[Rfam]
RNA sequence: AAGUGGUAAUCAGAGAGAGACAGGGAACAAGCAGAGCAUGGAUUGAGUUUUUACCAAAACAUCAAAUGACUAUGUUUGGUCUCUUCCCAUGCACUGCCUCUUCCCUGGCUCCCUCCUCUUUCUAUCCC
Numbered sequence: 001a002a003g004u005g006g007u008a009a010u011c012a013g014a015g016a017g018a019g020a021c022a023g024g025g026a027a028c029a030a031g032c033a034g035a036g037c038a039u040g041g042a043u044u045g046a047g048u049u050u051u052u053a054c055c056a057a058a059a060c061a062u063c064a065a066a067u068g069a070c071u072a073u074g075u076u077u078g079g080u081c082u083c084u085u086c087c088c089a090u091g092c093a094c095u096g097c098c099u100c101u102u103c104c105c106u107g108g109c110u111c112c113c114u115c116c117u118c119u120u121u122c123u124a125u126c127c128c
Base pairs, nucleotide, nucleotide: 017111018110019109021107022106023105024104025103026102027101029099031097032096033095034094036092037091038090039089040088041087045083046082

The record is a 128-nucleotide RNA from Brassica rapa, which matches "MIR408 microRNA precursor family" in Rfam. It scores 110 bits against the family's covariance model. On this family, see Mica et al., BMC Genomics 2009: "High throughput approaches reveal splicing of primary microRNA transcripts and tissue specific expression of mature microRNAs in Vitis vinifera". The base pairs follow the family's consensus structure, which was predicted with WAR. Taxonomically the source falls in Brassica (Eukaryota, Magnoliopsida, Gunneridae, Brassiceae).